[Rfam]
This 107-nucleotide RNA sequence from Carboxydocella thermautotrophica belongs to the Rfam family "Guanidine-I riboswitch aptamer". It scores 69 bits against the family's covariance model. Lineage of the source: Bacteria > Bacillati > Bacillota > Eubacteriales > Carboxydocella thermautotrophica.

RNA sequence: AGAAAGUGUGCCUAGGGUUCCGCCGGUUUUAUGGCCGGGUCUGUGACCGAGUGGCACAGGUGGGUAUUUUUUACCCGCUACACCGAUGGGACAAAAGCCCGGACGGG
Numbered sequence: 001a002g003a004a005a006g007u008g009u010g011c012c013u014a015g016g017g018u019u020c021c022g023c024c025g026g027u028u029u030u031a032u033g034g035c036c037g038g039g040u041c042u043g044u045g046a047c048c049g050a051g052u053g054g055c056a057c058a059g060g061u062g063g064g065u066a067u068u069u070u071u072u073a074c075c076c077g078c079u080a081c082a083c084c085g086a087u088g089g090g091a092c093a094a095a096a097g098c099c100c101g102g103a104c105g106g107g
Stems, first nucleotide, its partner, number of pairs: 007058006015048002020045001021043001022041001023038006059079008081102001083105001088100003